[Rfam]
RNA sequence: AAACUUGUUGAUGAGGAAGACUUGAUCUCCUAUGUCAUUGAGAGUCUUAAUUCCAUUUAUAAUCAUUUCAUCACAUCUCUUAAUUUUGCCACCCGAGACAAGCCAAUUUCAUUUGAUGAUUUUCAAACUGAAUUGCUCAAUUAUGAGC
Number, nucleotide and partner (000 for none) at each position: 001a000002a000003a000004c147005u146006u145007g144008u143009u000010g000011a000012u000013g000014a000015g000016g000017a000018a000019g000020a000021c000022u000023u000024g000025a000026u000027c000028u000029c000030c000031u000032a000033u000034g000035u000036c000037a000038u000039u000040g000041a000042g000043a000044g000045u000046c000047u000048u000049a000050a000051u000052u000053c000054c000055a000056u000057u000058u000059a000060u000061a000062a000063u000064c000065a000066u000067u000068u000069c000070a000071u000072c000073a000074c000075a000076u000077c000078u000079c000080u000081u000082a000083a000084u000085u000086u000087u000088g000089c000090c000091a000092c000093c000094c000095g000096a000097g117098a000099c115100a114101a113102g112103c000104c000105a000106a000107u000108u000109u000110c000111a000112u102113u101114u100115g099116a000117u097118g000119a000120u000121u000122u000123u000124c000125a000126a000127a000128c000129u000130g000131a000132a000133u000134u000135g000136c000137u000138c000139a000140a000141u000142u000143a008144u007145g006146a005147g004148c000
A member of the RNA family "Small nucleolar RNA Z247" from Juglans regia, 148 nucleotides long. For this family Rfam cites "The high diversity of snoRNAs in plants: identification and comparative study of 120 snoRNA genes from Oryza sativa" (Chen et al., Nucleic Acids Res, 2003). Lineage of the source: Eukaryota > Tracheophyta > Spermatophyta > Magnoliopsida > Juglans. Rfam classes the family as a C/D-box small nucleolar RNA. Pairs were carried over by alignment from the consensus structure, which was predicted with PFOLD.